[Rfam]
RNA sequence: GCCGUGUGUCAUUCGGGCAGGGUUCGAACCUGCAGCAGGUCGGGUCGACCAGAGGGAGACAGCGUUGCCGCAGGCAACGACCCGAAGGGCGAGGCUUCAGCCGAGUCAUCCUGCACGACCCACCA
Numbered sequence: 001g002c003c004g005u006g007u008g009u010c011a012u013u014c015g016g017g018c019a020g021g022g023u024u025c026g027a028a029c030c031u032g033c034a035g036c037a038g039g040u041c042g043g044g045u046c047g048a049c050c051a052g053a054g055g056g057a058g059a060c061a062g063c064g065u066u067g068c069c070g071c072a073g074g075c076a077a078c079g080a081c082c083c084g085a086a087g088g089g090c091g092a093g094g095c096u097u098c099a100g101c102c103g104a105g106u107c108a109u110c111c112u113g114c115a116c117g118a119c120c121c122a123c124c125a
Stems, first nucleotide, its partner, number of pairs: 015116001017114005023108001033091001036088001040086001041084002046056001063079006
The record is a 125-nucleotide sequence from Erwinia sp. 198, which matches "RtT RNA" in Rfam. The family's RNA type in Rfam is cis-regulatory element. The source organism's lineage runs through Bacteria, Pseudomonadota, Enterobacterales, Erwiniaceae and Erwinia. The family has 57 seed sequences and 651 matches in Rfam 15.1. From the family's description: This family represents a bacterial cis-regulatory element known as RtT RNA. The exact function of RtT is unknown although it is thought that it may be involved in changing the cellular response in relation to amino acid starvation. Rfam links the family to the GO term cellular response to amino acid starvation.